[Rfam]
RNA sequence: UUAAAGGGUGUUUGCUACUUGAAUGGCAUGCGUGCUUAAAUGCGCGUAGGGUAUGGAUAUCAAGACAUACCCAGCACACAAUUUUUAAAAUUAACGGGCUGCUGGCUGUCAAUGUGCACUGGCGCUCGU
Numbered sequence: 001u002u003a004a005a006g007g008g009u010g011u012u013u014g015c016u017a018c019u020u021g022a023a024u025g026g027c028a029u030g031c032g033u034g035c036u037u038a039a040a041u042g043c044g045c046g047u048a049g050g051g052u053a054u055g056g057a058u059a060u061c062a063a064g065a066c067a068u069a070c071c072c073a074g075c076a077c078a079c080a081a082u083u084u085u086u087a088a089a090a091u092u093a094a095c096g097g098g099c100u101g102c103u104g105g106c107u108g109u110c111a112a113u114g115u116g117c118a119c120u121g122g123c124g125c126u127c128g129u
Stems, first nucleotide, its partner, number of pairs: 008077005013028005029048007049072007096127004101123005107118003110114001
RNA: U11 spliceosomal RNA